[Rfam]
RNA: MIR807 microRNA precursor family
Organism: Oryza sativa
RNA sequence: AACCACACUAUCAAUGAAUGGAUUCACCCGCGAGAUGACCUAACUGUUUCACCUAGGACGAGGACUUGGCAUCCUAUUACCAGCAAUCGCACGAAAUUAAUAGGAUGCCACGUCCUCAUCCUAGAUGGAACAACCACGUCAUCUCACAGGUGAAUCUAUUCGUCGAUAGUGUGGUU
Dot-bracket structure: (((((((.((((.((.(((.((((((((.(.((.(((((.(...((((..(..((.((....(((...(((((((((((......((........)))))))))))))...)))....)).))..)..))))...).))))).)).).)))))))).))).)).)))).)))))))